Shown here is a 290-nucleotide sequence from Debaryomyces hansenii, a member of the family "Nuclear RNase P". About the family: Ribonuclease P (RNase P) is a ubiquitous endoribonuclease, found in archaea, bacteria and eukarya as well as chloroplasts and mitochondria. For this family Rfam cites "Ribonuclease P: unity and diversity in a tRNA processing ribozyme" (Frank and Pace, Annu Rev Biochem, 1998). The base pairs follow the family's consensus structure, which is taken from published work. The family's RNA type in Rfam is ribozyme.

[Rfam]
RNA sequence: AACGUUUCGCGUUUACCCGCCUACAAACAGAGGGCCUUAGCGGCCUCUCACUAAAUUAGCGGGUGGGAAAUUCGGUGGUUCUCCCCAUCCUAGGGGACUCUGUCCCUAAAUUAAUACUCUUGAGAGUGUCCUUAGCGUGAAAACGCCGGGCAAUGCCAUAAGAAAGCAGCAGAAUUUAUUCUGCAUGGGAGGCAUUGCGGAUGGUUGGUCUUUUAUUAUGAGAAAAGGCUAUUGAGUGCAAUAUGCGAACUUGAUUUAUUCAAAUUAAGCACCCGAUACCGAUCAUCGUU
Dot-bracket structure: ..............(((((..........((((((.......).)))))..........)))))........(((((.........((((........................(((((....)))))....(.((((....)))).).(((((((............(((..........))).......)))))))))))...............................................(((((((......))))))).......))))).........